A member of the RNA family "Small nucleolar RNA SNORD121A" from Alca torda, 85 nucleotides long. On this family, see Yang et al., Nucleic Acids Res 2006: "snoSeeker: an advanced computational package for screening of guide and orphan snoRNA genes in the human genome".
RNA sequence: GUCCGAAGUACAGUGAUGUUUUUCUUUUCCAAGCACAUAUCUGGUUGCUCUGUGUGGAAAAUGACUGUUGCUGAAUGUUUUGGGU
Numbered sequence: 001g002u003c004c005g006a007a008g009u010a011c012a013g014u015g016a017u018g019u020u021u022u023u024c025u026u027u028u029c030c031a032a033g034c035a036c037a038u039a040u041c042u043g044g045u046u047g048c049u050c051u052g053u054g055u056g057g058a059a060a061a062u063g064a065c066u067g068u069u070g071c072u073g074a075a076u077g078u079u080u081u082g083g084g085u
Stems, first nucleotide, its partner, number of pairs: 001085006008078003